[Rfam]
RNA sequence: UACUGUUAAUGAUGAAAUUGUGAAAAAGACAAUGGGAAUCUCUCUGAAAAGCAGUGAUGAUACAAUUUUACUGAAACAGUA
Numbered sequence: 001u002a003c004u005g006u007u008a009a010u011g012a013u014g015a016a017a018u019u020g021u022g023a024a025a026a027a028g029a030c031a032a033u034g035g036g037a038a039u040c041u042c043u044c045u046g047a048a049a050a051g052c053a054g055u056g057a058u059g060a061u062a063c064a065a066u067u068u069u070a071c072u073g074a075a076a077c078a079g080u081a
Stems, first nucleotide, its partner, number of pairs: 001081007
Small nucleolar RNA SNORD79: an 81-nucleotide RNA from Notechis scutatus. By type it is a C/D-box small nucleolar RNA. The literature on the family includes a 2002 paper in Mol Cell Biol by Galardi et al., "Purified box C/D snoRNPs are able to reproduce site-specific 2'-O-methylation of target RNA in vitro". snoRNA U79 or Z22 is found in intron 7 of the gas5 gene in humans and is also present in mice. Taxonomically the source falls in Notechis (Eukaryota, Lepidosauria, Episquamata, Elapidae).